Source information: A member of the RNA family "Bacteroides-1 RNA" from Bacteroides sp. 2_2_4, 82 nucleotides long.
RNA sequence: AUGCUAAUCGACCUGAAGCUGUUUAUGAGUAUGCGAAUAUACGUAGAUAGUACUUAUGCCUCCCCGGCAUAGACAGGAAAGA
Numbered sequence: 001a002u003g004c005u006a007a008u009c010g011a012c013c014u015g016a017a018g019c020u021g022u023u024u025a026u027g028a029g030u031a032u033g034c035g036a037a038u039a040u041a042c043g044u045a046g047a048u049a050g051u052a053c054u055u056a057u058g059c060c061u062c063c064c065c066g067g068c069a070u071a072g073a074c075a076g077g078a079a080a081g082a
Base pairs, nucleotide, nucleotide: 018051019050020049023046024045025044026043027042029040030039031038032037054072055071056070057069058068059067060066
It is annotated as a small RNA.